The family of this 68-nucleotide RNA sequence from Musa balbisiana is "Plastid-clpP 5UTR RNA". It is annotated as a cis-regulatory element. Rfam describes the family as follows. Plastid clpP is a non-coding RNA (ncRNA) recognised in plastids. It was found in the prime untranslated region (5UTR) of a protease complex subunit (clpP) in plastids, suggesting a posible cis-regulatory function. The literature on the family includes a 2023 paper in Plant Commun by Richter et al., "Retrograde signaling in plants: A critical review focusing on the GUN pathway and beyond".

[Rfam]
RNA sequence: AAUUUUGUCGUAAGAACAAAGAGGAAGCAGAUUAUUCUAUACCCGUUAAGUACCACUACGCAAUGGGC
Numbered sequence: 001a002a003u004u005u006u007g008u009c010g011u012a013a014g015a016a017c018a019a020a021g022a023g024g025a026a027g028c029a030g031a032u033u034a035u036u037c038u039a040u041a042c043c044c045g046u047u048a049a050g051u052a053c054c055a056c057u058a059c060g061c062a063a064u065g066g067g068c
Base pairs, nucleotide, nucleotide: 003021004020006018007017008015009014042067043066044065050059051058052057